RNA sequence: UACCAGGUUGAUUCUGCCUGACGUGGACGCUUGCCUCGAAGAUUAAGCCAUGCAAGUCUGUGAAUAUAUGAAACAGUGUACGGCUCAGUAUAACACCUAUAUCUACCCACUUUUUAAAUAUAACCAUGGUAAACUAUGGCUAAUAUAGUGGAUGAGUGGGUGACCUAUCAGCUUGACGGUACGGUAAGUGCGUACCGAGGCUAUAACGGGUAACGGGGAAUAUGGGUUUUAUUCCGGAGAGGGAGCCUGAGAGAUGGCUGCCACGUCCAAGGACGGCAGCAGGCGCGAAACUUACCCAAUGAACGUUGAGGUAGUUACGAGGCGUAGUAUUAUGAAGUGUGUGUAAAGAGCAUACUGAAGUACUGGAGGGCAAGUCUGGUGCCAGCAGCCGCGGUAAUACCAGCUCCAGUAGCGUCUGUGUUUAUUGCUG
Numbered sequence: 001u002a003c004c005a006g007g008u009u010g011a012u013u014c015u016g017c018c019u020g021a022c023g024u025g026g027a028c029g030c031u032u033g034c035c036u037c038g039a040a041g042a043u044u045a046a047g048c049c050a051u052g053c054a055a056g057u058c059u060g061u062g063a064a065u066a067u068a069u070g071a072a073a074c075a076g077u078g079u080a081c082g083g084c085u086c087a088g089u090a091u092a093a094c095a096c097c098u099a100u101a102u103c104u105a106c107c108c109a110c111u112u113u114u115u116a117a118a119u120a121u122a123a124c125c126a127u128g129g130u131a132a133a134c135u136a137u138g139g140c141u142a143a144u145a146u147a148g149u150g151g152a153u154g155a156g157u158g159g160g161u162g163a164c165c166u167a168u169c170a171g172c173u174u175g176a177c178g179g180u181a182c183g184g185u186a187a188g189u190g191c192g193u194a195c196c197g198a199g200g201c202u203a204u205a206a207c208g209g210g211u212a213a214c215g216g217g218g219a220a221u222a223u224g225g226g227u228u229u230u231a232u233u234c235c236g237g238a239g240a241g242g243g244a245g246c247c248u249g250a251g252a253g254a255u256g257g258c259u260g261c262c263a264c265g266u267c268c269a270a271g272g273a274c275g276g277c278a279g280c281a282g283g284c285g286c287g288a289a290a291c292u293u294a295c296c297c298a299a300u301g302a303a304c305g306u307u308g309a310g311g312u313a314g315u316u317a318c319g320a321g322g323c324g325u326a327g328u329a330u331u332a333u334g335a336a337g338u339g340u341g342u343g344u345a346a347a348g349a350g351c352a353u354a355c356u357g358a359a360g361u362a363c364u365g366g367a368g369g370g371c372a373a374g375u376c377u378g379g380u381g382c383c384a385g386c387a388g389c390c391g392c393g394g395u396a397a398u399a400c401c402a403g404c405u406c407c408a409g410u411a412g413c414g415u416c417u418g419u420g421u422u423u424a425u426u427g428c429u430g
Base pairs, nucleotide, nucleotide: 004020005019006018007017008016022420023419024418025417026416027415028414029413030412031411033323034322035321036320037319038318039316040315041286047284048283049282051281052280053279056077057076059075060074061073084239085238086237094162095161096160097159098158099157100156102155103154107151108150109149110148111147113145124139125138126137127136128135129134164210165209166208171201172200173199177197178196179195180194181193182192183191214236215235216234217233218229219228220227221226241262242261244259245258246257264275265274266273267272292313294312295311296310300308301307302306336356337355338354339353340352341351363409364408365407366406367405368404376403377402378401379400385392386391